[Rfam]
RNA: U7 small nuclear RNA
Organism: Cebus imitator
RNA sequence: UGAUGUUACAGCUCUUUCAGAAUUUAUAUGCUAGAUUUUCUGGCUUUCACUAGAAAACCCCA
Numbered sequence: 001u002g003a004u005g006u007u008a009c010a011g012c013u014c015u016u017u018c019a020g021a022a023u024u025u026a027u028a029u030g031c032u033a034g035a036u037u038u039u040c041u042g043g044c045u046u047u048c049a050c051u052a053g054a055a056a057a058c059c060c061c062a
Stems, first nucleotide, its partner, number of pairs: 034059001036057008